[Rfam]
The record is a 112-nucleotide RNA from Allobacillus sp. SKP2-8, which matches "epsC RNA" in Rfam.
Taxonomically the source falls in Allobacillus (Bacteria, Bacillati, Caryophanales, Bacillaceae).
The match comes from Rfam's covariance-model search (106 bits).
RNA sequence: AGGUAAUGUCUCAAACACCUUUAUCAUUUGAGGCACUCGGCCAUGCUGUGGGUUUCAAUGACCUUAGACACCAGUUGUCAGUAGUGUGGCGUGAGGGCGGGUUAGAUGCCCG
Number, nucleotide and partner (000 for none) at each position: 001a020002g019003g018004u017005a000006a000007u035008g034009u033010c032011u031012c030013a029014a000015a000016c000017a004018c003019c002020u001021u000022u000023a000024u000025c000026a000027u000028u000029u013030g012031a011032g010033g009034c008035a007036c095037u094038c093039g092040g090041c089042c088043a087044u086045g085046c084047u083048g000049u000050g064051g063052g062053u061054u060055u000056c000057a000058a000059u000060g054061a053062c052063c051064u050065u000066a000067g079068a078069c077070a076071c000072c000073a000074g000075u000076u070077g069078u068079c067080a000081g000082u000083a047084g046085u045086g044087u043088g042089g041090c040091g000092u039093g038094a037095g036096g000097g000098c112099g111100g110101g109102u108103u000104a000105g000106a000107u000108g102109c101110c100111c099112g098